Glycine riboswitch aptamer: a 90-nucleotide RNA sequence from Paracoccus tibetensis. NCBI's taxonomy places the organism under Bacteria, Pseudomonadati, Alphaproteobacteria, Rhodobacterales, Paracoccus.

RNA sequence: GGCAGGAAUUCGGGAGACACCGGCGCAGCGCCGGGGCCGAAGGAGAAGCCGCCCCGGCAAGCUCUCAGGCGAAAGGACCGCUUUCCGCAC
Numbered sequence: 001g002g003c004a005g006g007a008a009u010u011c012g013g014g015a016g017a018c019a020c021c022g023g024c025g026c027a028g029c030g031c032c033g034g035g036g037c038c039g040a041a042g043g044a045g046a047a048g049c050c051g052c053c054c055c056g057g058c059a060a061g062c063u064c065u066c067a068g069g070c071g072a073a074a075g076g077a078c079c080g081c082u083u084u085c086c087g088c089a090c
Stems, first nucleotide, its partner, number of pairs: 006085003011080003020034004036070003039066002043064003049057002